[Rfam]
Shown here is a 52-nucleotide RNA from Porphyromonas sp. oral taxon 278, a member of the family "S4-Bacteroidia ribosomal protein leader". The family is grouped with related families in Rfam's "Ribosomal Protein S4 Leader clan". NCBI's taxonomy places the organism under Bacteria, Pseudomonadati, Porphyromonadaceae, Porphyromonas, Porphyromonas sp. oral taxon 278. For this family Rfam cites "Discovery of 20 novel ribosomal leader candidates in bacteria and archaea" (Eckert and Weinberg, BMC Microbiol, 2020). Rfam's curators put it in the seed alignment.
RNA sequence: GAUUGGCUAUACUUUCAUAUAUCUAUCCUCUCCUCAUAACCGGUCGCGGCUG
Numbered sequence: 001g002a003u004u005g006g007c008u009a010u011a012c013u014u015u016c017a018u019a020u021a022u023c024u025a026u027c028c029u030c031u032c033c034u035c036a037u038a039a040c041c042g043g044u045c046g047c048g049g050c051u052g
Stems, first nucleotide, its partner, number of pairs: 001045006